RNA sequence: GCCCCGGGCCGUGACCGGCGCUGAGGUGGAGCACCACCGGGGAGCGGUCCGACGGAACUCUCGACAACCGUCGAUGCCGUGCGCCUGGACGACACAC
Numbered sequence: 001g002c003c004c005c006g007g008g009c010c011g012u013g014a015c016c017g018g019c020g021c022u023g024a025g026g027u028g029g030a031g032c033a034c035c036a037c038c039g040g041g042g043a044g045c046g047g048u049c050c051g052a053c054g055g056a057a058c059u060c061u062c063g064a065c066a067a068c069c070g071u072c073g074a075u076g077c078c079g080u081g082c083g084c085c086u087g088g089a090c091g092a093c094a095c096a097c
Base pairs, nucleotide, nucleotide: 005051006050007049008048009047010046011045012044015041016040017085018084019083020082021081026037027036028035029034075091076090078088